[Rfam]
RNA: c-di-AMP riboswitch aptamer (ydaO/yuaA leader)
Organism: Megasphaera cerevisiae
RNA sequence: AGAAAAGAAAAGUCGAAUCCUUGUAAAGGGUACGGGGGAUCCAAUCUUUUGGGGUGAAUCCAAUGUAUUUGGAAGGCUGUCUUCAGCCUAACCCGUCAGUUAACCUCGGAGACAGAGAGGAGCUUUUAU
Numbered sequence: 001a002g003a004a005a006a007g008a009a010a011a012g013u014c015g016a017a018u019c020c021u022u023g024u025a026a027a028g029g030g031u032a033c034g035g036g037g038g039a040u041c042c043a044a045u046c047u048u049u050u051g052g053g054g055u056g057a058a059u060c061c062a063a064u065g066u067a068u069u070u071g072g073a074a075g076g077c078u079g080u081c082u083u084c085a086g087c088c089u090a091a092c093c094c095g096u097c098a099g100u101u102a103a104c105c106u107c108g109g110a111g112a113c114a115g116a117g118a119g120g121a122g123c124u125u126u127u128a129u
Base pairs, nucleotide, nucleotide: 012113013112014111019030020029021028022027033108034107035106036105037104042051043050052094053093054092060072061071062070063069075088076087077086078085